Rfam assigns this 77-nucleotide RNA sequence from Brassica rapa to the family "Small nucleolar RNA snoR53Y". A reference for the family is Brown et al. (2001), "Multiple snoRNA gene clusters from Arabidopsis", RNA.
RNA sequence: AUUCCCUAUGAUGGCUUAACAACCAUGCUAAUGCUGAUUUCUUGUGACCGAAACAACGUUAAAUGACUGAGGGAAUA
Numbered sequence: 001a002u003u004c005c006c007u008a009u010g011a012u013g014g015c016u017u018a019a020c021a022a023c024c025a026u027g028c029u030a031a032u033g034c035u036g037a038u039u040u041c042u043u044g045u046g047a048c049c050g051a052a053a054c055a056a057c058g059u060u061a062a063a064u065g066a067c068u069g070a071g072g073g074a075a076u077a
Stems, first nucleotide, its partner, number of pairs: 001076005